The family of this 108-nucleotide sequence from Vibrionales bacterium SWAT-3 is "Qrr RNA". Taxonomically the source falls in Vibrionales (Bacteria, Pseudomonadati, Pseudomonadota, Gammaproteobacteria). The base pairs follow the family's consensus structure, which is taken from published work. Rfam links the family to the GO term quorum sensing. This family represents a set of small RNAs (the Qrr RNAs) that are thought to be involved in the regulation of quorum sensing in Vibrio species. It is believed that these RNAs, guided by a protein, Hfq, can mediate the destabilisation of the quorum-sensing master regulators LuxR/HapR mRNAs. Rfam's curators put it in the seed alignment.
RNA sequence: UGACCCUUCUUAAGCCGAGGGUCACCUAGCCAACUGACGUUGUUAGUGAACCUUUAUUGUUCACACAAAAUAUAUGACCAAUCACACGUUGUGAUUGGUUUUUUUUGC
Numbered sequence: 001u002g003a004c005c006c007u008u009c010u011u012a013a014g015c016c017g018a019g020g021g022u023c024a025c026c027u028a029g030c031c032a033a034c035u036g037a038c039g040u041u042g043u044u045a046g047u048g049a050a051c052c053u054u055u056a057u058u059g060u061u062c063a064c065a066c067a068a069a070a071u072a073u074a075u076g077a078c079c080a081a082u083c084a085c086a087c088g089u090u091g092u093g094a095u096u097g098g099u100u101u102u103u104u105u106u107g108c
Base pairs, nucleotide, nucleotide: 001024002023003022004021005020006019041074042073043072046064047063048062049061050060051059078098079097080096081095082094083093084092085091